[Rfam]
RNA sequence: AGGGUGUGAGUAUUACAUCAGGUACUGGUGUCUUUUUUUCAGCGACCAGUACUUGUGUUAUACUUGCGUUCG
Numbered sequence: 001a002g003g004g005u006g007u008g009a010g011u012a013u014u015a016c017a018u019c020a021g022g023u024a025c026u027g028g029u030g031u032c033u034u035u036u037u038u039u040c041a042g043c044g045a046c047c048a049g050u051a052c053u054u055g056u057g058u059u060a061u062a063c064u065u066g067c068g069u070u071c072g
Stems, first nucleotide, its partner, number of pairs: 002071005009064004015058004021053009
Dot-bracket structure: .(((((..((((..((((..(((((((((...............))))))))).))))..))))..))))).

A member of the RNA family "mir-12 microRNA precursor family" from Nasonia vitripennis, 72 nucleotides long. A reference for the family is Werren et al. (2010), "Functional and evolutionary insights from the genomes of three parasitoid Nasonia species", Science. Rfam's curators put it in the seed alignment. Taxonomically the source falls in Nasonia (Eukaryota, Hexapoda, Pterygota, Pteromalidae).